[Rfam]
RNA: GP20-b RNA
RNA sequence: GGUCAGUUGAUCAGACCUUAAACAGUCGGUUCGUGGCGGUCGGUUACACGCCUAAAACAACCUA
Numbered sequence: 001g002g003u004c005a006g007u008u009g010a011u012c013a014g015a016c017c018u019u020a021a022a023c024a025g026u027c028g029g030u031u032c033g034u035g036g037c038g039g040u041c042g043g044u045u046a047c048a049c050g051c052c053u054a055a056a057a058c059a060a061c062c063u064a
Base pairs, nucleotide, nucleotide: 001017002016003015004014009027010026011025035052036051037050038049
Dot-bracket structure: ((((....[[[..)))).......]]].......((((..........))))............